About this RNA: Shown here is a 167-nucleotide sequence from Mycoplasma sp. OR1901, a member of the family "Lysine riboswitch aptamer".

RNA sequence: UAUGUCUAUAGAGGAGCUACUAGUAUUAGUAAUCAAUUGAGCUGGCAAGCGUUGAUAUUGAUGAAAGGAUAUAGUGGCCGAAACUGAGUUAACGGCAGUUAAGUCAGUUGGUAGAAAAGCAUAAAAGAUUUCUACUCUUUGGUUAAUCCAUUGGUGCUAUAGACUUA
Numbered sequence: 001u002a003u004g005u006c007u008a009u010a011g012a013g014g015a016g017c018u019a020c021u022a023g024u025a026u027u028a029g030u031a032a033u034c035a036a037u038u039g040a041g042c043u044g045g046c047a048a049g050c051g052u053u054g055a056u057a058u059u060g061a062u063g064a065a066a067g068g069a070u071a072u073a074g075u076g077g078c079c080g081a082a083a084c085u086g087a088g089u090u091a092a093c094g095g096c097a098g099u100u101a102a103g104u105c106a107g108u109u110g111g112u113a114g115a116a117a118a119g120c121a122u123a124a125a126a127g128a129u130u131u132c133u134a135c136u137c138u139u140u141g142g143u144u145a146a147u148c149c150a151u152u153g154g155u156g157c158u159a160u161a162g163a164c165u166u167a
Base pairs, nucleotide, nucleotide: 006162007161008160009159010158011157016078017077018076019075020074021073023070024069032062033061034060035059036058037057039056082109083108084107085106086105087104089102090101091100092099093098110136111135112134113133114132115131116130118129120127
NCBI's taxonomy places the organism under Bacteria, Mycoplasmatota, Mycoplasmatales, Mycoplasmataceae, Mycoplasma.
Rfam links the family to the GO term lysine biosynthetic process.
It scores 77 bits against the family's covariance model.
The base pairs follow the family's consensus structure, which is taken from published work.